[Rfam]
RNA: nhaA-I RNA
RNA sequence: AGGUCCGGGGAUAGCGGUCAGCGAUUUCCGGAGGAUAGAGGGUGGUCGGGCCGCCAUCC
Numbered sequence: 001a002g003g004u005c006c007g008g009g010g011a012u013a014g015c016g017g018u019c020a021g022c023g024a025u026u027u028c029c030g031g032a033g034g035a036u037a038g039a040g041g042g043u044g045g046u047c048g049g050g051c052c053g054c055c056a057u058c059c
Stems, first nucleotide, its partner, number of pairs: 005031008040059007